[Rfam]
RNA sequence: UUCCACAGCUACUGGACUGGAACUGUUCUGUACUGUAGCGGUUGCAGUAUUUCAACUGUGGGAAAUGAUCAGUUACACUGUGUAGUGCUCCUUUCUCAAUCAAGGGAAGAGAAUUUCAGUGUAACAGACAGGA
Numbered sequence: 001u002u003c004c005a006c007a008g009c010u011a012c013u014g015g016a017c018u019g020g021a022a023c024u025g026u027u028c029u030g031u032a033c034u035g036u037a038g039c040g041g042u043u044g045c046a047g048u049a050u051u052u053c054a055a056c057u058g059u060g061g062g063a064a065a066u067g068a069u070c071a072g073u074u075a076c077a078c079u080g081u082g083u084a085g086u087g088c089u090c091c092u093u094u095c096u097c098a099a100u101c102a103a104g105g106g107a108a109g110a111g112a113a114u115u116u117c118a119g120u121g122u123a124a125c126a127g128a129c130a131g132g133a
Base pairs, nucleotide, nucleotide: 003061004060005059006058017047018046019045021043022042023041024040025039075122076121077120078119079118089112090111091109092108093107094106095105096104
The record is a 133-nucleotide RNA from Varanus komodoensis, which matches "Small nucleolar RNA SNORA41" in Rfam. ACA41 is a member of the H/ACA class of snoRNA that guide the sites of modification of uridines to pseudouridines. A reference for the family is Huttenhofer et al. (2001), "RNomics: an experimental approach that identifies 201 candidates for novel, small, non-messenger RNAs in mouse", EMBO J.